BsrG: a 261-nucleotide RNA from Novibacillus thermophilus. The match comes from Rfam's covariance-model search (83 bits). The family's consensus secondary structure was predicted with WAR. About the family: bsrE, bsrG and bsrH pair through intermolecular interactions with antisense sRNAs. They form type I toxin/antitoxin system that includes an mRNA encoding for a short, toxic peptide (bsrE, bsrG and bsrH) and an antitoxin that is comprised of an antisense RNA. bsrG encodes a 39-amino-acid toxin, and the 180 nucleotide antisense sRNA called SR4 acts as the antitoxin (they overlap by 123 nucleotides). SR4 interaction with the 3'UTR of bsrG RNA promotes bsrG degradation and inhibits its translation. BsrG interferes with cell envelope biosynthesis, causes membrane invaginations and delocalisation of the cell wall synthesis and initiates autolysis. bsrE RNA encodes 30 amino-acid toxin peptide. Its antitoxin gene, SR5 overlaps by 112 nucleotides at the 3' end of bsrE. SR5 also overlaps bsrG from nucleotide 163 to 52 (Rfam overlap check). The antitoxin SR5 promotes bsrE degradation but unlike SR4 it does not directly inhibits toxin mRNA translation.
RNA sequence: UACAAUAGGUUGGGCUCCUCAAGGGUGGUCGGCUCACUCCUGACCCCAUCAGGGAAGGGGGUGAGGACGUAUGGACGCCUAUCAAGUGUUAACGCUUCUGAUAUUGUUCGGAACGUUAGUCGCCGUGAUGAUGUCCGACAAAAGCAAGUAGAUCACCCUUGAGCUUGUCGGCUGGGUGAUCUACCUCGGCUGACUGUUUGAGCCUGCCCCCUUGAAGGGCGGCUUAUUGUACAUGGACCGCAGGUGUUGGCCGCACCUGCG
Dot-bracket structure: (((((.(((.(((((((((((((((.((((...((((((((...............))))))))........(((((.(.......((..........))...........(.............)...).)))))..............)))).)))))))).........(((..........)))...........))))))((((.......))))).))).))))).......(((((((((.....)))))))))